[Rfam]
RNA: MIR2593 microRNA precursor family
RNA sequence: UUAUAAGCAAAACUUUACAUUUUAGAUUCAUUCAUUAAAUGAUGUAUGUGCUCUCUAACAAAGAUCAUAUACAUUAUUAAUUGAAUGAAUCUAAAAUGCAAAGUUUUGCUUAUAA
Numbered sequence: 001u002u003a004u005a006a007g008c009a010a011a012a013c014u015u016u017a018c019a020u021u022u023u024a025g026a027u028u029c030a031u032u033c034a035u036u037a038a039a040u041g042a043u044g045u046a047u048g049u050g051c052u053c054u055c056u057a058a059c060a061a062a063g064a065u066c067a068u069a070u071a072c073a074u075u076a077u078u079a080a081u082u083g084a085a086u087g088a089a090u091c092u093a094a095a096a097u098g099c100a101a102a103g104u105u106u107u108g109c110u111u112a113u114a115a
Base pairs, nucleotide, nucleotide: 002114003113004112005111006110007109009107010106011105012104013103015101016100018098019097020096021095022094023093024092025091027089028088029087030086031085032084033083034082036080038078039077040076041075042074043073044072049067050066052064